This 78-nucleotide RNA from Nicotiana tabacum belongs to the Rfam family "MIR6145 microRNA precursor family". Lineage of the source: Eukaryota > Streptophyta > Tracheophyta > Solanales > Nicotiana. The match comes from Rfam's covariance-model search (75 bits). Gene Ontology terms of the family: miRNA-mediated post-transcriptional gene silencing and RISC complex.

[Rfam]
RNA sequence: GUAAUGAGCAUUAUUACAUAUAGCACUGGCUCGCAUAAAAAUUUGUCGGCUAGUGCUCAUGUGACAAUCCCUUUUUCU
Numbered sequence: 001g002u003a004a005u006g007a008g009c010a011u012u013a014u015u016a017c018a019u020a021u022a023g024c025a026c027u028g029g030c031u032c033g034c035a036u037a038a039a040a041a042u043u044u045g046u047c048g049g050c051u052a053g054u055g056c057u058c059a060u061g062u063g064a065c066a067a068u069c070c071c072u073u074u075u076u077c078u
Stems, first nucleotide, its partner, number of pairs: 001077001003075002006072001008070001010068003014064006022057010